[Rfam]
Overview: Shown here is a 365-nucleotide RNA from Idiomarina xiamenensis, a member of the family "Bacterial RNase P class A". The match comes from Rfam's covariance-model search (324 bits). By type it is a ribozyme. Taxonomically the source falls in Idiomarina xiamenensis (Bacteria, Pseudomonadota, Gammaproteobacteria, Idiomarinaceae).
RNA sequence: GGAGUCAGCCAGACAAUCGCUGCUUAUCUCGCUUUGCGUUGAUAGGGGGAGGAAAGUCCGGGCUCCAUAGGGCAGGGUGCCAGAUAACGUCUGGGCGAUGUGAAUCGACGACUAGUGCAACAGAGAGCAAACCGCCGAUGGUCGGCUACGCCGAUACAGGUAAGGGUGAAAGGGUGCGGUAAGAGCGCACCGCGCGGCUGGCAACAGUUCGUGGCACGGUAAACUCCACCCGGAGCAAGGUCAAAUAGGGACUCAUUGGCGCGGCCCGCGUUGAGUCCGGGUAGACUGCUAAAGCCGUUUAGCGAUAAACGGAUUAGACGAAUGAUUGUCCUCGACAGAACCCGGCUUAUCGGCUGACUCCGAUA
Dot-bracket structure: ((((((((((((((((((.((.((((((............)))))).))....[[[.[[[[[((((...[[[[.((((((((((.....)))))(((((....)))).)((...((((.............(((((..((.(..........).))..)))..)).......((((((.......))))))(((((((((....))).))))).)...))..)))))))))))))...((((......((((((...(((((.]]]]))))))))))).....)))).......(((((((....)))))))...........)))))))..........]]]]]]]].).))))))))))....